Rfam assigns this 200-nucleotide sequence from Setaria viridis to the family "MIR1435 microRNA precursor family".
The match comes from Rfam's covariance-model search (102 bits).
The organism belongs to Setaria, within Eukaryota.
Rfam 15.1 lists 1,765 matches to the family in 31 species.
Rfam links the family to the GO terms miRNA-mediated post-transcriptional gene silencing and RISC complex.

RNA sequence: UAGCUUUGUCCUAAGCCAUACAUUUCUAAGUUCGCCUAGGCUUACAGAAAAAUAGAUUAACAUCUAUGAUACUAGAUAAAUGCCCUGCCAAAACAUAUUUGACAGUGGAUUUAACGAAACUAAUUUGAUGUUGUAGAUGUUGAUGCAUUUUUCUAUAAAUUUGGUAAAAGUUAGAAAAGUAUGACUUGUGACAUCGAAAA
Numbered sequence: 001u002a003g004c005u006u007u008g009u010c011c012u013a014a015g016c017c018a019u020a021c022a023u024u025u026c027u028a029a030g031u032u033c034g035c036c037u038a039g040g041c042u043u044a045c046a047g048a049a050a051a052a053u054a055g056a057u058u059a060a061c062a063u064c065u066a067u068g069a070u071a072c073u074a075g076a077u078a079a080a081u082g083c084c085c086u087g088c089c090a091a092a093a094c095a096u097a098u099u100u101g102a103c104a105g106u107g108g109a110u111u112u113a114a115c116g117a118a119a120c121u122a123a124u125u126u127g128a129u130g131u132u133g134u135a136g137a138u139g140u141u142g143a144u145g146c147a148u149u150u151u152u153c154u155a156u157a158a159a160u161u162u163g164g165u166a167a168a169a170g171u172u173a174g175a176a177a178a179g180u181a182u183g184a185c186u187u188g189u190g191a192c193a194u195c196g197a198a199a200a
Base pairs, nucleotide, nucleotide: 007193008192009191012188013187014186015185017183018182019181020180021179023177024176025175026174031168032167034165035164046154047153048152049151050150051149052148056144057143059141060140061139062138063137064136065135066134067133068132073127074126075125076124077123